This 108-nucleotide RNA from Enemella dayhoffiae belongs to the Rfam family "TPP riboswitch aptamer (THI element)". It scores 60 bits against the family's covariance model. The base pairs follow the family's consensus structure, which is taken from published work.

RNA sequence: UGACCGGAUCACGGGAGUCCGGGGCACCGGGCUGAGAGGAAGGUCAGACCUUCGACCGUCGAACCUGAUCUGGGUCAUGCCAGCGCAGGGAGGCCUCUGCACCAGUCG
Numbered sequence: 001u002g003a004c005c006g007g008a009u010c011a012c013g014g015g016a017g018u019c020c021g022g023g024g025c026a027c028c029g030g031g032c033u034g035a036g037a038g039g040a041a042g043g044u045c046a047g048a049c050c051u052u053c054g055a056c057c058g059u060c061g062a063a064c065c066u067g068a069u070c071u072g073g074g075u076c077a078u079g080c081c082a083g084c085g086c087a088g089g090g091a092g093g094c095c096u097c098u099g100c101a102c103c104a105g106u107c108g
Stems, first nucleotide, its partner, number of pairs: 006096002009093002011059004017032005039053005064089004070083004
Dot-bracket structure: .....((.((((((..(((((......)))))......(((((.....)))))..))))....((((..((((......))))..))))..)).))............
Gene Ontology term of the family: thiamine pyrophosphate binding. From the family's description: Vitamin B(1) in its active form thiamin pyrophosphate (TPP) is an essential coenzyme that is synthesised by coupling of pyrimidine and thiazole moieties in bacteria.